[Rfam]
Rfam assigns this 52-nucleotide RNA sequence from Lyngbya sp. PCC 8106 to the family "Nitrogen stress-induced RNA 1". It scores 50 bits against the family's covariance model. Lineage of the source: Bacteria > Cyanobacteriota > Cyanophyceae > Oscillatoriophycideae > Lyngbya. On this family, see Ionescu et al., J Mol Biol 2010: "Heterocyst-specific transcription of NsiR1, a non-coding RNA encoded in a tandem array of direct repeats in cyanobacteria".
RNA sequence: GAGUAGAUGCACCCUGAUGGUUAUCCCCUAGCUUCGGUUAGGGGAUUUUUUU
Numbered sequence: 001g002a003g004u005a006g007a008u009g010c011a012c013c014c015u016g017a018u019g020g021u022u023a024u025c026c027c028c029u030a031g032c033u034u035c036g037g038u039u040a041g042g043g044g045a046u047u048u049u050u051u052u
Stems, first nucleotide, its partner, number of pairs: 003012002025044008
Dot-bracket structure: ..((......))............((((((((....))))))))........